[Rfam]
RNA: permuted transfer-messenger RNA
Organism: Rhodospirillaceae bacterium LM-1
RNA sequence: GGCGCUAAACGCCUUGCAGAAUAAGCAUUGCGGACCCGGGGGCGGUACCCGGCGCCUCCACCAUUCCAAGGCCUGGUUGUCGGGCUGAGCUUGGGGGCGAAACAGGAUCGACGCGUGUGGUAAAGGCAGGGUCUGUGCCCGGUAUGGUUCCGCCGUUAGCGGGCCGUUUUACAAGAGCCAACGACAACGAGGCUCUCGCCAUUGCCGCGUAA
Numbered sequence: 001g002g003c004g005c006u007a008a009a010c011g012c013c014u015u016g017c018a019g020a021a022u023a024a025g026c027a028u029u030g031c032g033g034a035c036c037c038g039g040g041g042g043c044g045g046u047a048c049c050c051g052g053c054g055c056c057u058c059c060a061c062c063a064u065u066c067c068a069a070g071g072c073c074u075g076g077u078u079g080u081c082g083g084g085c086u087g088a089g090c091u092u093g094g095g096g097g098c099g100a101a102a103c104a105g106g107a108u109c110g111a112c113g114c115g116u117g118u119g120g121u122a123a124a125g126g127c128a129g130g131g132u133c134u135g136u137g138c139c140c141g142g143u144a145u146g147g148u149u150c151c152g153c154c155g156u157u158a159g160c161g162g163g164c165c166g167u168u169u170u171a172c173a174a175g176a177g178c179c180a181a182c183g184a185c186a187a188c189g190a191g192g193c194u195c196u197c198g199c200c201a202u203u204g205c206c207g208c209g210u211a212a
Stems, first nucleotide, its partner, number of pairs: 001139005014129004026117003030114003036052005053099007140155004